[Rfam]
RNA sequence: GCUGGGACCGGCUGGGCCCAGAUACGUGGUCAAAUGAAGUGUGUUUUGUCCACUGUUGUCGGCUUCCUAGAGUAAAGUGGGGGUCUCUGUCUGCUUUAGGAGAGCCACCUAACGUAGCUCGUUCCCCUCCAUACAUG
Numbered sequence: 001g002c003u004g005g006g007a008c009c010g011g012c013u014g015g016g017c018c019c020a021g022a023u024a025c026g027u028g029g030u031c032a033a034a035u036g037a038a039g040u041g042u043g044u045u046u047u048g049u050c051c052a053c054u055g056u057u058g059u060c061g062g063c064u065u066c067c068u069a070g071a072g073u074a075a076a077g078u079g080g081g082g083g084u085c086u087c088u089g090u091c092u093g094c095u096u097u098a099g100g101a102g103a104g105c106c107a108c109c110u111a112a113c114g115u116a117g118c119u120c121g122u123u124c125c126c127c128u129c130c131a132u133a134c135a136u137g
Base pairs, nucleotide, nucleotide: 004067005066006065008062009061010060011059012058026053027052028051029050031048036045037044079130080129081128082127083126087121089119091117093115094114096112097111098110099109